RNA sequence: GGCCACCUUCGGGGGGCUAUUACAUAAGCCGGGCAACCGGCUGCUAGCUAACGGAAGACAGAAA
Numbered sequence: 001g002g003c004c005a006c007c008u009u010c011g012g013g014g015g016g017c018u019a020u021u022a023c024a025u026a027a028g029c030c031g032g033g034c035a036a037c038c039g040g041c042u043g044c045u046a047g048c049u050a051a052c053g054g055a056a057g058a059c060a061g062a063a064a
Stems, first nucleotide, its partner, number of pairs: 001018004006014003027042006
A member of the RNA family "L2-Alphaproteobacteria ribosomal protein leader" from Sagittula stellata, 64 nucleotides long. The family's RNA type in Rfam is cis-regulatory leader. For this family Rfam cites "Discovery of 20 novel ribosomal leader candidates in bacteria and archaea" (Eckert and Weinberg, BMC Microbiol, 2020). The base pairs follow the family's consensus structure, which is taken from published work. The source organism's lineage runs through Bacteria, Rhodobacterales, Roseobacteraceae, Sagittula and Sagittula stellata.